A member of the RNA family "U4 spliceosomal RNA" from Chelydra serpentina, 130 nucleotides long. By type it is a spliceosomal small nuclear RNA. The family is grouped with related families in Rfam's "U4 clan". It scores 56 bits against the family's covariance model. Rfam 15.1 lists 32,178 matches to the family in 2,547 species.

RNA sequence: UGCUUUGCGCAGUGACAGUAUCAUAGUCUGUGAGGUUCAACUGAGGCGUGAUUAUUGCUAAAUGAAACUUUUCCAGGACCAAUGAAGACCUGAAGAUUUUCAGUGCACUACAAAUUACCCCUUGUUAGAG
Numbered sequence: 001u002g003c004u005u006u007g008c009g010c011a012g013u014g015a016c017a018g019u020a021u022c023a024u025a026g027u028c029u030g031u032g033a034g035g036u037u038c039a040a041c042u043g044a045g046g047c048g049u050g051a052u053u054a055u056u057g058c059u060a061a062a063u064g065a066a067a068c069u070u071u072u073c074c075a076g077g078a079c080c081a082a083u084g085a086a087g088a089c090c091u092g093a094a095g096a097u098u099u100u101c102a103g104u105g106c107a108c109u110a111c112a113a114a115u116u117a118c119c120c121c122u123u124g125u126u127a128g129a130g
Stems, first nucleotide, its partner, number of pairs: 020052005026047003034042003083112002087106001090103005121130003